[Rfam]
RNA: small nucleolar RNA snoR117
Organism: Helianthus annuus
Nucleotides: 090
Base pairs, nucleotide, nucleotide: 001089002088003087004086
Number, partner (000 for none) and nucleotide at each position: 001089u002088g003087c004086c005000g006000a007000u008000g009000a010000u011000g012000a013000c014000g015000u016000a017000u018000a019000u020000u021000g022000u023000a024000u025000u026000g027000u028000c029000c030000g031000u032000a033000c034000c035000a036000u037000c038000u039000g040000a041000a042000a043000g044000g045000u046000u047000u048000u049000a050000u051000a052000g053000c054000c055000u056000u057000g058000u059000u060000u061000g062000a063000u064000u065000a066000u067000a068000c069000u070000c071000a072000c073000a074000u075000c076000c077000a078000a079000u080000g081000u082000c083000u084000g085000a086004g087003g088002c089001a090000u